[Rfam]
RNA sequence: UUGGAUGAAACUCAUGUGAAUCUCACGCUUUGAAAAUGACUCUCACAUGAAAUGGUAAAACCCACAUGAGUUUCACCCAA
Numbered sequence: 001u002u003g004g005a006u007g008a009a010a011c012u013c014a015u016g017u018g019a020a021u022c023u024c025a026c027g028c029u030u031u032g033a034a035a036a037u038g039a040c041u042c043u044c045a046c047a048u049g050a051a052a053u054g055g056u057a058a059a060a061c062c063c064a065c066a067u068g069a070g071u072u073u074c075a076c077c078c079a080a
Base pairs, nucleotide, nucleotide: 001080002079003078004077006075007074008073009072010071011070012069013068014067015066016065017064018063023058025056026054027053029051030050031049032048
Overview: A member of the RNA family "MIR5269 microRNA precursor family" from Medicago truncatula, 80 nucleotides long. The base pairs follow the family's consensus structure, which was predicted with RNAalifold. A search with the family's covariance model found it, with a score of 64 bits.